[Rfam]
Nucleotides: 061
Stems, first nucleotide, its partner, number of pairs: 001059006008052002012048010
Number, partner (000 for none) and nucleotide at each position: 001059u002058u003057g004056u005055g006054a007000c008052c009051g010000u011000u012048g013047u014046u015045a016044c017043g018042g019041u020040c021039a022000a023000u024000u025000c026000a027000u028000g029000u030000c031000u032000g033000a034000c035000a036000c037000a038000a039021u040020g041019a042018c043017c044016g045015u046014a047013a048012u049000c050000c051009c052008g053000u054006u055005c056004a057003c058002a059001a060000c061000a